Description
Shown here is a 169-nucleotide RNA sequence from Medicago truncatula, a member of the family "MIR2619 microRNA precursor family".

RNA sequence: AAACAGCCCCCUAUGUUUUGAUUUUUUUGCAGUUUUGGACCCCAAGGCAAAAAUAAAAUAAAAUAUUGACACGUGGCACCUUAUUUAGGGUGCCACGUCAGCGUUGACCGAGUCAACAAUGGACUGAGUGUCCAAAACUGUCAAAAAAUCAAAACAUAGGGGGAUGUUU
Numbered sequence: 001a002a003a004c005a006g007c008c009c010c011c012u013a014u015g016u017u018u019u020g021a022u023u024u025u026u027u028u029g030c031a032g033u034u035u036u037g038g039a040c041c042c043c044a045a046g047g048c049a050a051a052a053a054u055a056a057a058a059u060a061a062a063a064u065a066u067u068g069a070c071a072c073g074u075g076g077c078a079c080c081u082u083a084u085u086u087a088g089g090g091u092g093c094c095a096c097g098u099c100a101g102c103g104u105u106g107a108c109c110g111a112g113u114c115a116a117c118a119a120u121g122g123a124c125u126g127a128g129u130g131u132c133c134a135a136a137a138c139u140g141u142c143a144a145a146a147a148a149u150c151a152a153a154a155c156a157u158a159g160g161g162g163g164a165u166g167u168u169u
Stems, first nucleotide, its partner, number of pairs: 001169002004166002007163002012158016029141012042128001043126002071098002074095007

Gene Ontology terms of the family: miRNA-mediated post-transcriptional gene silencing and RISC complex.
A search with the family's covariance model found it, with a score of 150 bits.